[Rfam]
Description
The record is a 221-nucleotide sequence from Drosophila ananassae, which matches "Small nucleolar RNA U3" in Rfam. Small nucleolar RNAs (snoRNAs) are involved in the processing and modification of rRNA in the nucleolus. There are two main classes of snoRNAs: the box C/D class, and the box H/ACA class. U3 snoRNA is a member of the box C/D class. By type it is a C/D-box small nucleolar RNA. Pairs were carried over by alignment from the consensus structure, which is taken from published work. Rfam links the family to the GO terms RNA processing and nucleolus. On this family, see Zwieb, Nucleic Acids Res 1997: "The uRNA database". NCBI's taxonomy places the organism under Eukaryota, Metazoa, Mandibulata, Muscomorpha, ananassae species complex.
RNA sequence: AAGACUAUACUUCACAGGAUCAUUUCUGUAGUCAGUCUUCACAUACUUUCACAUUAGAUGAAAGCUAAGCACACCCGCGUUGAUGAGGUGAAUCGUUCUAUUCGGCAGCGUGAGGAUUUGUCCAGCGGCCUUUGUGGUGUGGCGCUUCGGUGUCCGCAUCCUCCGGGUCGUCGGGCUUCGAUGAUCGCUCGGUAACACGAAUAGAGCGAAUUCUGAGUGGU
Numbered sequence: 001a002a003g004a005c006u007a008u009a010c011u012u013c014a015c016a017g018g019a020u021c022a023u024u025u026c027u028g029u030a031g032u033c034a035g036u037c038u039u040c041a042c043a044u045a046c047u048u049u050c051a052c053a054u055u056a057g058a059u060g061a062a063a064g065c066u067a068a069g070c071a072c073a074c075c076c077g078c079g080u081u082g083a084u085g086a087g088g089u090g091a092a093u094c095g096u097u098c099u100a101u102u103c104g105g106c107a108g109c110g111u112g113a114g115g116a117u118u119u120g121u122c123c124a125g126c127g128g129c130c131u132u133u134g135u136g137g138u139g140u141g142g143c144g145c146u147u148c149g150g151u152g153u154c155c156g157c158a159u160c161c162u163c164c165g166g167g168u169c170g171u172c173g174g175g176c177u178u179c180g181a182u183g184a185u186c187g188c189u190c191g192g193u194a195a196c197a198c199g200a201a202u203a204g205a206g207c208g209a210a211u212u213c214u215g216a217g218u219g220g221u
Stems, first nucleotide, its partner, number of pairs: 001039005009032003015028005048062004075220004093209012108188003120176004125171004141155002143152002